[Rfam]
RNA: MIR2118 microRNA precursor family
Organism: Triticum aestivum
RNA sequence: GCCAGGAAGAGGAAGAAUGAGAGAGCUCAAGAGCACUGGGAAUGGGAACAUGGAGGAAAGCCCUACUUGUUUGUUUGCACCUCUAGUGUUGGAGGUGCAAAUAUUAGGCAUGGGUCCUUUCCUGAUGCCUCCCAUUCCUAUAGUUGUUGUGCACUCCUUCCUCUUCCUUUUGGAU
Numbered sequence: 001g002c003c004a005g006g007a008a009g010a011g012g013a014a015g016a017a018u019g020a021g022a023g024a025g026c027u028c029a030a031g032a033g034c035a036c037u038g039g040g041a042a043u044g045g046g047a048a049c050a051u052g053g054a055g056g057a058a059a060g061c062c063c064u065a066c067u068u069g070u071u072u073g074u075u076u077g078c079a080c081c082u083c084u085a086g087u088g089u090u091g092g093a094g095g096u097g098c099a100a101a102u103a104u105u106a107g108g109c110a111u112g113g114g115u116c117c118u119u120u121c122c123u124g125a126u127g128c129c130u131c132c133c134a135u136u137c138c139u140a141u142a143g144u145u146g147u148u149g150u151g152c153a154c155u156c157c158u159u160c161c162u163c164u165u166c167c168u169u170u171u172g173g174a175u
Base pairs, nucleotide, nucleotide: 009166010165011164012163013162015160016159017158021156022155023154026151028149029148030147032145033144034143037140038139039138040137041136042135043134044133045132046131047130049127050126051125053123055122056121057120058119059118060115061114